[Rfam]
Rfam assigns this 126-nucleotide sequence from Rouxiella badensis to the family "RtT RNA". The source organism's lineage runs through Bacteria, Pseudomonadota, Gammaproteobacteria, Yersiniaceae and Rouxiella. For this family Rfam cites "A novel RNA product of the tyrT operon of Escherichia coli" (Bosl and Kersten, Nucleic Acids Res, 1991). Rfam's curators write: This family represents a bacterial cis-regulatory element known as RtT RNA. The exact function of RtT is unknown although it is thought that it may be involved in changing the cellular response in relation to amino acid starvation. The base pairs follow the family's consensus structure, which is taken from published work.
Nucleotides: 126
Base pairs, nucleotide, nucleotide: 015117016116017115018114019113020112021111022109032090033089035088036087040085042083043082047057048056064079065078066077067076068075069074
Number, partner (000 for none) and nucleotide at each position: 001000a002000g003000a004000u005000c006000c007000c008000g009000c010000g011000c012000g013000u014000c015117g016116u017115g018114u019113g020112g021111g022109u023000g024000a025000g026000a027000a028000g029000u030000u031000g032090c033089g034000u035088u036087c037000a038000g039000g040085u041000u042083c043082g044000a045000g046000c047057c048056g049000a050000g051000c052000g053000a054000a055000g056048c057047g058000a059000g060000a061000c062000g063000a064079c065078a066077a067076c068075g069074c070000g071000a072000a073000c074069g075068c076067g077066u078065u079064g080000c081000c082043c083042g084000c085040a086000g087036g088035g089033u090032g091000a092000g093000g094000c095000c096000a097000a098000a099000g100000g101000c102000c103000g104000a105000a106000u107000c108000a109022a110000u111021c112020c113019c114018g115017c116016a117015c118000g119000a120000c121000c122000c123000a124000c125000c126000a